[Rfam]
RNA sequence: GGGGGUGUACUGGUUUCGACUAGGAAAUCAAGUAUUGAUUGCAUGCAGAGGGAGUCGGUUGGCCUCUUUAAAAAACCGGCAAAGCAAUAAAUGCUAAAGAAGACAAAGUACUCUCAGUUAAUUUUGCUGAGGCAGUAGCAGCAUAAGCUUUAAUUAGCUUCAUCUGCUCCGGACGCUUAAAAUUCACCAAGGGUUUUAGGCUGCGCCGUUAUUUUACUUGGUAUGACUUUAGGAGGCUUAAAGCUUUCAGCCGUCUUGGAGUCGAGAUCUAAUGAAAGCUGGCUCUUUCUUUUUGCCGCAUCUUCAUAGGGAAAGGGUUCUAUUAAAAGAUGCUAAGCAUGUAGUGGUUAAUAUGUAGUUUGCUUAGGACGAGAGUUCGAUUCUCUCCACCUCCAUUA
Number, nucleotide and partner (000 for none) at each position: 001g394002g393003g392004g391005g390006u389007g388008u000009a000010c000011u000012g000013g000014u000015u000016u000017c000018g000019a000020c367021u366022a365023g364024g363025a000026a361027a360028u000029c358030a356031a000032g354033u353034a352035u351036u350037g349038a348039u347040u346041g345042c341043a340044u339045g338046c337047a067048g066049a065050g064051g063052g000053a000054g080055u079056c078057g077058g076059u075060u074061g000062g000063c051064c050065u049066c048067u047068u000069u000070a000071a000072a000073a000074a060075a059076c058077c057078g056079g055080c054081a000082a000083a000084g000085c000086a000087a000088u000089a000090a000091a000092u000093g000094c000095u000096a000097a000098a000099g000100a000101a000102g000103a000104c000105a000106a000107a000108g000109u000110a000111c000112u000113c000114u000115c000116a000117g000118u000119u000120a000121a000122u000123u000124u000125u000126g000127c000128u000129g000130a000131g000132g000133c000134a165135g164136u000137a000138g161139c000140a159141g158142c157143a000144u000145a000146a000147g000148c000149u000150u000151u000152a000153a000154u000155u000156a000157g142158c141159u140160u000161c138162a000163u000164c135165u134166g000167c000168u000169c000170c000171g207172g206173a000174c203175g201176c200177u199178u198179a000180a196181a195182a194183u193184u000185c000186a000187c000188c221189a000190a219191g218192g217193g183194u182195u181196u180197u000198a178199g177200g176201c175202u000203g174204c000205g000206c172207c171208g000209u000210u000211a000212u000213u000214u000215u000216a000217c192218u191219u190220g000221g188222u000223a000224u000225g263226a262227c261228u260229u259230u258231a257232g256233g255234a000235g000236g000237c000238u000239u000240a000241a000242a000243g000244c000245u276246u275247u274248c000249a000250g000251c000252c000253g000254u000255c233256u232257u231258g230259g229260a228261g227262u226263c225264g000265a000266g000267a000268u000269c000270u000271a000272a000273u000274g247275a246276a245277a000278g000279c000280u000281g000282g318283c317284u316285c315286u314287u313288u312289c311290u310291u309292u000293u000294u308295g333296c332297c000298g000299c000300a000301u000302c000303u327304u326305c000306a000307u000308a294309g291310g290311g289312a288313a287314a286315g285316g284317g283318u282319u000320c000321u000322a000323u000324u000325a000326a304327a303328a000329g000330a000331u000332g296333c295334u000335a000336a000337g046338c045339a044340u043341g042342u000343a000344g000345u041346g040347g039348u038349u037350a036351a035352u034353a033354u032355g000356u030357a000358g029359u000360u027361u026362g000363c024364u023365u022366a021367g020368g000369a000370c000371g387372a386373g385374a384375g383376u000377u000378c000379g000380a000381u000382u000383c375384u374385c373386u372387c371388c007389a006390c005391c004392u003393c002394c001395a000396u000397u000398a000